The family of this 83-nucleotide sequence from Caenorhabditis auriculariae is "mir-81 microRNA precursor family". For this family Rfam cites "An abundant class of tiny RNAs with probable regulatory roles in Caenorhabditis elegans" (Lau et al., Science, 2001). Rfam 15.1 lists 68 matches to the family in 54 species.

RNA sequence: CGGCCACUCGCAAUCGGUUUUCACCCUGAUCUGAGAGUUGCAACACUUCUGAGAUCAUCGUGAAAGCUAGUUGCGGGUGUGUU
Numbered sequence: 001c002g003g004c005c006a007c008u009c010g011c012a013a014u015c016g017g018u019u020u021u022c023a024c025c026c027u028g029a030u031c032u033g034a035g036a037g038u039u040g041c042a043a044c045a046c047u048u049c050u051g052a053g054a055u056c057a058u059c060g061u062g063a064a065a066g067c068u069a070g071u072u073g074c075g076g077g078u079g080u081g082u083u
Stems, first nucleotide, its partner, number of pairs: 009075004016068009027057006034050003037046002